The family of this 123-nucleotide RNA sequence from Kineosphaera limosa is "SAM riboswitch aptamer (S box leader)".
RNA sequence: UAUCCAUCACGACCGGCGGAGGGACAGGCCCGUAGAUGCCGGGGCAGCCGCCCACGGGGUAACCCGCGGGGUUUGGUGCCAAGUCCUGCGGUUGCGUGGCGACACCCGACCGGAAGAUGGAGC
Numbered sequence: 001u002a003u004c005c006a007u008c009a010c011g012a013c014c015g016g017c018g019g020a021g022g023g024a025c026a027g028g029c030c031c032g033u034a035g036a037u038g039c040c041g042g043g044g045c046a047g048c049c050g051c052c053c054a055c056g057g058g059g060u061a062a063c064c065c066g067c068g069g070g071g072u073u074u075g076g077u078g079c080c081a082a083g084u085c086c087u088g089c090g091g092u093u094g095c096g097u098g099g100c101g102a103c104a105c106c107c108g109a110c111c112g113g114a115a116g117a118u119g120g121a122g123c
Stems, first nucleotide, its partner, number of pairs: 003121006013042005021031003025088004043080004048076002050072004084115001089112006